[Rfam]
RNA: GP20-b RNA
RNA sequence: GGUCAGUCGAUAAGACCUAAAACAGUCAGUCGGAAGCGAGCAGUUACAGGCUUAAAACAACUUA
Dot-bracket structure: ((((....[[[..)))).......]]].......(((............)))............
Numbered sequence: 001g002g003u004c005a006g007u008c009g010a011u012a013a014g015a016c017c018u019a020a021a022a023c024a025g026u027c028a029g030u031c032g033g034a035a036g037c038g039a040g041c042a043g044u045u046a047c048a049g050g051c052u053u054a055a056a057a058c059a060a061c062u063u064a
Stems, first nucleotide, its partner, number of pairs: 001017004009027003035052003